Shown here is a 74-nucleotide RNA sequence from Microctonus aethiopoides, a member of the family "bZIP non canonical Hac1/Xbp1 intron". Rfam's curators write: bZIP intron RNA is a non-canonical intron that was first reported in HAC1 gene in yeast and XBP1 gene in Metazoa. The source organism's lineage runs through Eukaryota, Mandibulata, Altocrustacea, Insecta and Microctonus. A reference for the family is Iracane et al. (2018), "Identification of an Exceptionally Long Intron in the HAC1 Gene of Candida parapsilosis", mSphere.
RNA sequence: GGUUGUGGUGCUUCUGCGCUGGGAUCAGCUGUAUCCCCAAUUAACCCUCUGCCGCAGGGUGGAGCAACACAACU
Numbered sequence: 001g002g003u004u005g006u007g008g009u010g011c012u013u014c015u016g017c018g019c020u021g022g023g024a025u026c027a028g029c030u031g032u033a034u035c036c037c038c039a040a041u042u043a044a045c046c047c048u049c050u051g052c053c054g055c056a057g058g059g060u061g062g063a064g065c066a067a068c069a070c071a072a073c074u
Stems, first nucleotide, its partner, number of pairs: 001074007010065005021037005044060005